This 108-nucleotide RNA sequence belongs to the Rfam family "drum RNA". Firmicutes, Bacteroidetes (1 example), Proteobacteria (2 examples), Spirochaetes (2 examples). The family's consensus secondary structure is taken from published work.
[Rfam]
RNA sequence: AAGCGUUGAAGUAAUACGUUGUUUCAGGACGCAGUGUUUAUGGAGCUUUAUAAGGGUUAUAUAUUUACCACAACCUGGAUAGGGGAGACCCGAAAGAAAAUAUAGUAU
Number, nucleotide and partner (000 for none) at each position: 001a048002a047003g046004c045005g000006u000007u000008g000009a000010a000011g041012u040013a039014a038015u000016a000017c036018g035019u034020u033021g032022u031023u000024u078025c077026a076027g075028g000029a000030c000031g022032c021033a020034g019035u018036g017037u000038u014039u013040a012041u011042g000043g000044a000045g004046c003047u002048u001049u000050a000051u000052a000053a000054g000055g000056g000057u000058u000059a000060u000061a103062u102063a101064u000065u000066u000067a000068c000069c000070a000071c000072a000073a000074c000075c027076u026077g025078g024079a000080u000081a000082g091083g090084g089085g000086a000087g000088a000089c084090c083091c082092g000093a000094a000095a000096g000097a000098a000099a000100a000101u063102a062103u061104a000105g000106u000107a000108u000